[Rfam]
RNA sequence: GGCGGGUUGAGAGAGCCUAAUACAAUACCCGAAAGGGGAAUAUGCUCCGCCGUCUGAACACGGUAGUUGAUGCCCGCCCACCUAAU
Numbered sequence: 001g002g003c004g005g006g007u008u009g010a011g012a013g014a015g016c017c018u019a020a021u022a023c024a025a026u027a028c029c030c031g032a033a034a035g036g037g038g039a040a041u042a043u044g045c046u047c048c049g050c051c052g053u054c055u056g057a058a059c060a061c062g063g064u065a066g067u068u069g070a071u072g073c074c075c076g077c078c079c080a081c082c083u084a085a086u
Base pairs, nucleotide, nucleotide: 001078002077003076004075005074006073007072013047014046015045016044018042019041028037029036030035049064050063051062052061053060

A member of the RNA family "sRNA-Xcc1" from Simonsiella muelleri, 86 nucleotides long. Rfam 15.1 lists 421 matches to the family in 299 species. By type it is a small RNA. On this family, see Wengelnik et al., Mol Plant Microbe Interact 1996: "HrpG, a key hrp regulatory protein of Xanthomonas campestris pv. vesicatoria is homologous to two-component response regulators".